[Rfam]
RNA: Small nucleolar RNA SNORD18
Organism: Bagarius yarrelli
RNA sequence: UAGCUGUGAUGAGUUUCACUUCUGGUCCGUGUUUAUGAGUCCUGUGAUUUUUAUUUGAAGUGCUGAGUUA
Numbered sequence: 001u002a003g004c005u006g007u008g009a010u011g012a013g014u015u016u017c018a019c020u021u022c023u024g025g026u027c028c029g030u031g032u033u034u035a036u037g038a039g040u041c042c043u044g045u046g047a048u049u050u051u052u053a054u055u056u057g058a059a060g061u062g063c064u065g066a067g068u069u070a
Stems, first nucleotide, its partner, number of pairs: 001070004